[Rfam]
The record is a 351-nucleotide part of an RNA from Bacteroides luti, which matches "Bacterial small subunit ribosomal RNA" in Rfam. Rfam links the family to the GO terms ribosome and structural constituent of ribosome. The source organism's lineage runs through Bacteria, Pseudomonadati, Bacteroidia, Bacteroidales and Bacteroides.
RNA sequence: GGUUUAAAGGGUGCGUAGGCGGAAUAAUAAGUCAGUUGUGAAAGUUUGCGGCUCAACCGUAAAAUUGCAGUUGAUACUGUUAUUCUUGAGUGUACAUAAGGUAGGCGGAAUUCGUGGUGUAGCGGUGAAAUGCUUAGAUAUCACGAAGAACUCCAAUUGCGAAGGCAGCUUACCGGGGUACAACUGACGCUGAGGCACGAAAGUGUGGGUAUCAAACAGGAUUAGAUACCCUGGUAGUCCACACAGUAAACGAUGAAUACUCGCUGUUUGCGAUAUACCGCAAGCGGCCAAGCGAAAGCAUUAAGUAUUCCACCUGGGGAGUACGCCGGCAACGGUGAAACUCAAAGGAAU
Dot-bracket structure: (((.....(.((((.(.(((.(((((((.(((((((((((....(((((((.....)))))))..)))))))))..)))))))))...(((((((.(..((((((((...((((((((...(((......)))......))))))))...).......((....)).))))))).).)))).)))...))))..))))....((((((....(...((((.........))))...).))))))..........((((((..((((((((((......))))))))))...((....)).....)))))))))).(((......((((....))))....)))........
Pairs were carried over by alignment from the consensus structure, which is taken from published work.